[Rfam]
RNA sequence: UAGAUAUGAGUAUUACAUCAGGUACUGGUUUUAGCUUACUUUUUUUACCAGUGGCUGUGUAAUGCUUGUCUCUA
Numbered sequence: 001u002a003g004a005u006a007u008g009a010g011u012a013u014u015a016c017a018u019c020a021g022g023u024a025c026u027g028g029u030u031u032u033a034g035c036u037u038a039c040u041u042u043u044u045u046u047a048c049c050a051g052u053g054g055c056u057g058u059g060u061a062a063u064g065c066u067u068g069u070c071u072c073u074a
Stems, first nucleotide, its partner, number of pairs: 001074004006069001009066004015060004021055001023053007